ZMP/ZTP riboswitch aptamer (pfl RNA motif): an 87-nucleotide RNA from Catenulispora acidiphila. Rfam links the family to the GO terms one-carbon metabolic process and regulation of purine nucleotide biosynthetic process. On this family, see Jones and Ferre-D'Amare, Nat Struct Mol Biol 2015: "Recognition of the bacterial alarmone ZMP through long-distance association of two RNA subdomains".

RNA sequence: CAGUCAGGCCGUGACUGGCGCUGAGGUGGGAUCACCACCGGGGAGCGGCCCGACACCGUGUCUUUGCCGUGCGCCUGGGCGACUUCC
Numbered sequence: 001c002a003g004u005c006a007g008g009c010c011g012u013g014a015c016u017g018g019c020g021c022u023g024a025g026g027u028g029g030g031a032u033c034a035c036c037a038c039c040g041g042g043g044a045g046c047g048g049c050c051c052g053a054c055a056c057c058g059u060g061u062c063u064u065u066g067c068c069g070u071g072c073g074c075c076u077g078g079g080c081g082a083c084u085u086c087c
Base pairs, nucleotide, nucleotide: 003054004053005052007050008049009048010047011046012045015042016041017075018074019073020072021071026038027037028036029035064082065081066080067079068078